[Rfam]
A member of the RNA family "Small nucleolar RNA SNORD53/SNORD92" from Nannospalax galili, 75 nucleotides long. The organism belongs to Nannospalax, within Eukaryota. On this family, see Kiss-Laszlo et al., Cell 1996: "Site-specific ribose methylation of preribosomal RNA: a novel function for small nucleolar RNAs". The family has 37 seed sequences and 2,250 matches in Rfam 15.1. Its Rfam clan is "SNORD52 clan".

RNA sequence: UUGCUGUGAUGAUCUCCACUGGGUUUUGCAGGUUACUGAGUUUUAGUGAUGCCUUUCUCUUGGCUGUCUGAGCAA
Numbered sequence: 001u002u003g004c005u006g007u008g009a010u011g012a013u014c015u016c017c018a019c020u021g022g023g024u025u026u027u028g029c030a031g032g033u034u035a036c037u038g039a040g041u042u043u044u045a046g047u048g049a050u051g052c053c054u055u056u057c058u059c060u061u062g063g064c065u066g067u068c069u070g071a072g073c074a075a
Stems, first nucleotide, its partner, number of pairs: 001075004